[Rfam]
RNA sequence: AAGCCAGUGGACGGAGUGGUCGGGUAAUGGAGACUGUAUUUGUUCGUUUCCAAAACCUAGGAAAGUCCCCGGGUCUUAUCCCGCAGAGAUGCGGCCUCGGAAACGAGGAAUCCUUUGAGCGUGGGAAAUUCUGUUCGCUUGUGCGGACGAGGCUGAGACACGUGUGUGGAGCCAUGGAUUUCCCCCCGAAGGUUAUUUGGCCGAUUUACAGUCAUUCACUCGAUCCAAAUGGAUUAACAGAACGGGGCUUAUGAUCCACUGGCU
Numbered sequence: 001a002a003g004c005c006a007g008u009g010g011a012c013g014g015a016g017u018g019g020u021c022g023g024g025u026a027a028u029g030g031a032g033a034c035u036g037u038a039u040u041u042g043u044u045c046g047u048u049u050c051c052a053a054a055a056c057c058u059a060g061g062a063a064a065g066u067c068c069c070c071g072g073g074u075c076u077u078a079u080c081c082c083g084c085a086g087a088g089a090u091g092c093g094g095c096c097u098c099g100g101a102a103a104c105g106a107g108g109a110a111u112c113c114u115u116u117g118a119g120c121g122u123g124g125g126a127a128a129u130u131c132u133g134u135u136c137g138c139u140u141g142u143g144c145g146g147a148c149g150a151g152g153c154u155g156a157g158a159c160a161c162g163u164g165u166g167u168g169g170a171g172c173c174a175u176g177g178a179u180u181u182c183c184c185c186c187c188g189a190a191g192g193u194u195a196u197u198u199g200g201c202c203g204a205u206u207u208a209c210a211g212u213c214a215u216u217c218a219c220u221c222g223a224u225c226c227a228a229a230u231g232g233a234u235u236a237a238c239a240g241a242a243c244g245g246g247g248c249u250u251a252u253g254a255u256c257c258a259c260u261g262g263c264u
Base pairs, nucleotide, nucleotide: 002264003263004262005261006260007259008258009257010256011255014221015220016219017218018217019216022058023057024056025055030045031044063250064249065248067247068246069245070244082093083092084091085090095108096107097106098105099104128194130192134190135189136188137187143183145181146180151173152172153171160167161166223234224233225232226231
RNA: RNase MRP